[Rfam]
RNA sequence: AUUUGGCUUAGUUAGGAGGCACAAAUCAAAACAUAUGGAUCAAAAGUAUCUUAGAUUGAUGCCUUGAUCUUAAAAACUAAGGUCUUUUUGAGUGGACUCUCUUGUUACUUUCCCAUCAAUUGUCCUUCAAGCAGCCUUAGACAUUC
Number, nucleotide and partner (000 for none) at each position: 001a000002u000003u000004u021005g020006g000007c018008u017009u016010a000011g000012u000013u000014a000015g000016g009017a008018g007019g000020c005021a004022c000023a000024a000025a000026u000027c000028a000029a000030a000031a000032c000033a000034u000035a000036u000037g000038g069039a068040u067041c066042a065043a000044a000045a000046g062047u061048a060049u059050c058051u000052u000053a000054g000055a000056u000057u000058g050059a049060u048061g047062c046063c000064u000065u042066g041067a040068u039069c038070u000071u000072a000073a000074a000075a000076a000077c140078u139079a138080a137081g136082g135083u134084c000085u000086u000087u131088u130089u129090g128091a000092g127093u000094g125095g124096a123097c122098u000099c000100u119101c000102u000103u000104g000105u000106u000107a000108c000109u000110u000111u000112c000113c000114c000115a000116u000117c000118a000119a100120u000121u000122g097123u096124c095125c094126u000127u092128c090129a089130a088131g087132c000133a000134g083135c082136c081137u080138u079139a078140g077141a000142c000143a000144u000145u000146c000
RNA: Small nucleolar RNA U19